Rfam assigns this 115-nucleotide sequence from Colocasia esculenta to the family "Small nucleolar RNA Z103". It is annotated as a C/D-box small nucleolar RNA. Its family is annotated with RNA processing and nucleolus in the Gene Ontology. For this family Rfam cites "The high diversity of snoRNAs in plants: identification and comparative study of 120 snoRNA genes from Oryza sativa" (Chen et al., Nucleic Acids Res, 2003).
RNA sequence: GCGGACGGGAUGAUCCUUUCCCCAGCUGAUCGACGCUGAUUACACUGUGCUAUUAUUCGUCGGUUUCGUCUCCUCCUCGGAGGUCUCGAAGCCCCAAGCCAGAUGUCUGAUCCGC
Number, nucleotide and partner (000 for none) at each position: 001g115002c114003g113004g112005a111006c000007g000008g000009g000010a000011u000012g000013a000014u000015c000016c000017u000018u000019u000020c000021c000022c000023c000024a000025g000026c000027u000028g000029a000030u000031c000032g000033a000034c000035g000036c000037u000038g000039a000040u000041u000042a000043c000044a000045c000046u000047g000048u000049g000050c000051u000052a000053u000054u000055a000056u000057u000058c000059g000060u000061c000062g000063g000064u000065u000066u000067c000068g000069u000070c000071u000072c000073c000074u000075c000076c000077u000078c000079g000080g000081a000082g000083g000084u000085c000086u000087c000088g000089a000090a000091g000092c000093c000094c000095c000096a000097a000098g000099c000100c000101a000102g000103a000104u000105g000106u000107c000108u000109g000110a000111u005112c004113c003114g002115c001